[Rfam]
RNA sequence: ACAUCAGUGAGGUAUAUCCUUACCUGUUACCUUAGAAAUAAGGUUGCAGAACAUGAUGAUUGGAUUCAAUGAAUGUGUGAUUAUAUUCCGCAUUUAUCAAGGAACCGCAACACCUUGAUGAAUCUUGUCUGAU
Numbered sequence: 001a002c003a004u005c006a007g008u009g010a011g012g013u014a015u016a017u018c019c020u021u022a023c024c025u026g027u028u029a030c031c032u033u034a035g036a037a038a039u040a041a042g043g044u045u046g047c048a049g050a051a052c053a054u055g056a057u058g059a060u061u062g063g064a065u066u067c068a069a070u071g072a073a074u075g076u077g078u079g080a081u082u083a084u085a086u087u088c089c090g091c092a093u094u095u096a097u098c099a100a101g102g103a104a105c106c107g108c109a110a111c112a113c114c115u116u117g118a119u120g121a122a123u124c125u126u127g128u129c130u131g132a133u
Stems, first nucleotide, its partner, number of pairs: 024049003028046001029044005071089001075086002078083001093122009